Source information:
This 182-nucleotide RNA sequence from Arthrobacter sp. C9C5 belongs to the Rfam family "c-di-AMP riboswitch aptamer (ydaO/yuaA leader)". A search with the family's covariance model found it, with a score of 57 bits. Its family is annotated with cyclic-di-AMP binding and regulation of gene expression in the Gene Ontology. The source organism's lineage runs through Bacteria, Bacillati, Actinomycetota, Actinomycetes and Arthrobacter. About the family: This family represents a conserved RNA structure found upstream of the ydaO and yuaA genes in Bacillus subtilis and related genes in other bacteria.
RNA sequence: UUGACGCCAAACUCUGCCGCUUCCCGGAUUCCCAUGGACCAGGCAGAGACGGGGAACCCAGAGUUCCCGGGCAUUCUGCAUCCAUGCACCCUUGGGGUUAAGCCGCCACGUCGAGAUUCCGUGCGGCCGGAUUUCGCAUCCGAACCCGACAGCUAACUCCGUAGGCGUUGAGAGGCGAACAU
Numbered sequence: 001u002u003g004a005c006g007c008c009a010a011a012c013u014c015u016g017c018c019g020c021u022u023c024c025c026g027g028a029u030u031c032c033c034a035u036g037g038a039c040c041a042g043g044c045a046g047a048g049a050c051g052g053g054g055a056a057c058c059c060a061g062a063g064u065u066c067c068c069g070g071g072c073a074u075u076c077u078g079c080a081u082c083c084a085u086g087c088a089c090c091c092u093u094g095g096g097g098u099u100a101a102g103c104c105g106c107c108a109c110g111u112c113g114a115g116a117u118u119c120c121g122u123g124c125g126g127c128c129g130g131a132u133u134u135c136g137c138a139u140c141c142g143a144a145c146c147c148g149a150c151a152g153c154u155a156a157c158u159c160c161g162u163a164g165g166c167g168u169u170g171a172g173a174g175g176c177g178a179a180c181a182u
Stems, first nucleotide, its partner, number of pairs: 005167004012048007049162006059094002095147003103126004129141004